[Rfam]
Rfam assigns this 91-nucleotide RNA from Desulfonatronum sp. SC1 to the family "c-di-GMP-I riboswitch aptamer".

RNA sequence: AUCCGACAAGGGCAAAACAUCCGAAAGGAUGCGACGCAAAGCCACCGGCCUACGUUUCGUGCAAACGGGAUAGGGUAGCGGGGUCGCCGGA
Numbered sequence: 001a002u003c004c005g006a007c008a009a010g011g012g013c014a015a016a017a018c019a020u021c022c023g024a025a026a027g028g029a030u031g032c033g034a035c036g037c038a039a040a041g042c043c044a045c046c047g048g049c050c051u052a053c054g055u056u057u058c059g060u061g062c063a064a065a066c067g068g069g070a071u072a073g074g075g076u077a078g079c080g081g082g083g084u085c086g087c088c089g090g091a
Stems, first nucleotide, its partner, number of pairs: 012037002018031005041084003045081003048076003055070006